[Rfam]
RNA sequence: GUUGCAAGUUCCAGGCCAUAGCAGAAGCACUCACAGUGUGGCCCUGUCAGAUUCCAAUGAAUCUCUGAAUUCUGAU
Numbered sequence: 001g002u003u004g005c006a007a008g009u010u011c012c013a014g015g016c017c018a019u020a021g022c023a024g025a026a027g028c029a030c031u032c033a034c035a036g037u038g039u040g041g042c043c044c045u046g047u048c049a050g051a052u053u054c055c056a057a058u059g060a061a062u063c064u065c066u067g068a069a070u071u072c073u074g075a076u
Base pairs, nucleotide, nucleotide: 014043015042016041017040020076022074023073024072025071026070027039028038029037049064050063051062052061053060054059
Shown here is a 76-nucleotide RNA from Alligator sinensis, a member of the family "Mammalian CPEB3 ribozyme". The base pairs follow the family's consensus structure, which is taken from published work. Lineage of the source: Eukaryota > Deuterostomia > Craniata > Euteleostomi > Alligator. Its family is annotated with RNA nuclease activity in the Gene Ontology.